Record summary: Rfam assigns this 158-nucleotide RNA from Rhodospirillum rubrum to the family "FMN riboswitch aptamer (RFN element)". The source organism's lineage runs through Bacteria, Alphaproteobacteria, Rhodospirillaceae, Rhodospirillum and Rhodospirillum rubrum.
RNA sequence: GCUUGUUCUCAGGGCAGGGUGAAACUCCCGACCGGCGGUAAUCCUUCCCUUUCACGGGGGGGACAGCCCGCGAGCGCCCUUUGCCGGUGGUGAAGGGGUCCAGCAGAUCCGGUGCGAAGCCGGAGCCGACGGUAUAGUCCGGAUGGAAGAGAACGAGG
Number, nucleotide and partner (000 for none) at each position: 001g000002c000003u156004u155005g154006u153007u152008c151009u150010c149011a000012g000013g000014g000015c000016a000017g029018g028019g027020u000021g000022a000023a000024a000025c000026u000027c019028c018029c017030g000031a138032c137033c128034g127035g071036c070037g069038g068039u000040a000041a000042u000043c000044c000045u000046u000047c000048c000049c000050u000051u000052u000053c000054a000055c000056g000057g000058g000059g000060g000061g000062g000063a000064c000065a000066g126067c125068c038069c037070g036071c035072g000073a000074g104075c103076g000077c000078c000079c000080u000081u000082u000083g000084c000085c000086g000087g000088u000089g000090g000091u000092g000093a000094a000095g000096g000097g000098g000099u000100c000101c000102a000103g075104c074105a000106g000107a000108u124109c123110c122111g121112g120113u000114g000115c000116g000117a000118a000119g000120c112121c111122g110123g109124a108125g067126c066127c034128g033129a000130c141131g140132g139133u000134a000135u000136a000137g032138u031139c132140c131141g130142g000143a000144u000145g000146g000147a000148a000149g010150a009151g008152a007153a006154c005155g004156a003157g000158g000